[Rfam]
RNA: mir-574 microRNA precursor family
RNA sequence: AGGCCUGAAGAGAGAAGUAGGGUCUUAUUCGCAGCCUCCAUGGCAGCUGUUGAUCAGCCAUUGCCUGUCUCUUUCUCUCUG
Number, nucleotide and partner (000 for none) at each position: 001a000002g000003g000004c000005c000006u000007g000008a073009a072010g071011a070012g069013a068014g000015a066016a000017g064018u063019a062020g061021g000022g059023u000024c057025u056026u000027a054028u053029u052030c000031g000032c049033a048034g047035c046036c000037u000038c000039c000040a000041u000042g000043g000044c000045a000046g035047c034048u033049g032050u000051u000052g029053a028054u027055c000056a025057g024058c000059c022060a000061u020062u019063g018064c017065c000066u015067g000068u013069c012070u011071c010072u009073u008074u000075c000076u000077c000078u000079c000080u000081g000